[Rfam]
RNA: c-di-AMP riboswitch aptamer (ydaO/yuaA leader)
Organism: Paenibacillus antri
RNA sequence: AGUAAAAUUACGCUUAAUUCCCAGUCGACAUCCGUUCGACGGGAAGCGGGGGAACCAAUGUACGUGGGGCGAAUCGUUCCGAAGUUUGGACCGUAGGGAACCAUCUAAUCCCGAGCCCGGCAGCUAACCUCGUCAGCAGGAGAUGGGUCGAUUU
Numbered sequence: 001a002g003u004a005a006a007a008u009u010a011c012g013c014u015u016a017a018u019u020c021c022c023a024g025u026c027g028a029c030a031u032c033c034g035u036u037c038g039a040c041g042g043g044a045a046g047c048g049g050g051g052g053a054a055c056c057a058a059u060g061u062a063c064g065u066g067g068g069g070c071g072a073a074u075c076g077u078u079c080c081g082a083a084g085u086u087u088g089g090a091c092c093g094u095a096g097g098g099a100a101c102c103a104u105c106u107a108a109u110c111c112c113g114a115g116c117c118c119g120g121c122a123g124c125u126a127a128c129c130u131c132g133u134c135a136g137c138a139g140g141a142g143a144u145g146g147g148u149c150g151a152u153u154u
Base pairs, nucleotide, nucleotide: 012137013136014135018045019044020043021042022041046133047132048131049130050129051128056066057065067118068117069116075093076092078090079089080088096112097111098110099109